[Rfam]
RNA sequence: AUGUGGCACUUUUCAGAUUUCGAGAUUCAAACAAGUCUAUCUUUGAUCGUAAUUUUUCAUAAAUCUUUUAAACAUUUUGAAUUUUCAAUUGUUAUGACUUAUAGUACUUUUUAUGUAGUUUACAAAUAUAUAAAUUUCAUUUCAAAAAAAUUGAAGAUUUCAUGCGCAAAUUUCCGGUCAAACUUAAACAGUUUGACUCACGAAAAACGAAAAGUGCCACAUAA
Numbered sequence: 001a002u003g004u005g006g007c008a009c010u011u012u013u014c015a016g017a018u019u020u021c022g023a024g025a026u027u028c029a030a031a032c033a034a035g036u037c038u039a040u041c042u043u044u045g046a047u048c049g050u051a052a053u054u055u056u057u058c059a060u061a062a063a064u065c066u067u068u069u070a071a072a073c074a075u076u077u078u079g080a081a082u083u084u085u086c087a088a089u090u091g092u093u094a095u096g097a098c099u100u101a102u103a104g105u106a107c108u109u110u111u112u113a114u115g116u117a118g119u120u121u122a123c124a125a126a127u128a129u130a131u132a133a134a135u136u137u138c139a140u141u142u143c144a145a146a147a148a149a150a151u152u153g154a155a156g157a158u159u160u161c162a163u164g165c166g167c168a169a170a171u172u173u174c175c176g177g178u179c180a181a182a183c184u185u186a187a188a189c190a191g192u193u194u195g196a197c198u199c200a201c202g203a204a205a206a207a208c209g210a211a212a213a214g215u216g217c218c219a220c221a222u223a224a
Stems, first nucleotide, its partner, number of pairs: 001222014018205005024199002027196006035189002038186002042182008051172005056166001058164003061160008075147007083139001093132004099125002102122003106119003
RNA: MIR8007 microRNA precursor family
Organism: Solanum tuberosum